Rfam assigns this 130-nucleotide sequence from Streptomyces monashensis to the family "Streptomyces-metH RNA". The source organism's lineage runs through Bacteria, Actinomycetota, Actinomycetes, Kitasatosporales and Streptomyces. The match comes from Rfam's covariance-model search (88 bits).

RNA sequence: CCGGUCCGCCUCGUGGACGCCGCUGCCCAUCCAAGCCCACUCCCGGUUACUCUGACGCCGUGCUCUUCCCCGGCCCGAACCGGGGAAGCCGCAUAGCCGACAGCCGUCGCACCUAGGGAGCCCCUUCAUG
Numbered sequence: 001c002c003g004g005u006c007c008g009c010c011u012c013g014u015g016g017a018c019g020c021c022g023c024u025g026c027c028c029a030u031c032c033a034a035g036c037c038c039a040c041u042c043c044c045g046g047u048u049a050c051u052c053u054g055a056c057g058c059c060g061u062g063c064u065c066u067u068c069c070c071c072g073g074c075c076c077g078a079a080c081c082g083g084g085g086a087a088g089c090c091g092c093a094u095a096g097c098c099g100a101c102a103g104c105c106g107u108c109g110c111a112c113c114u115a116g117g118g119a120g121c122c123c124c125u126u127c128a129u130g
Base pairs, nucleotide, nucleotide: 061093062092063091066087067086068085069084070083071082072081073080096110097109099108100107101106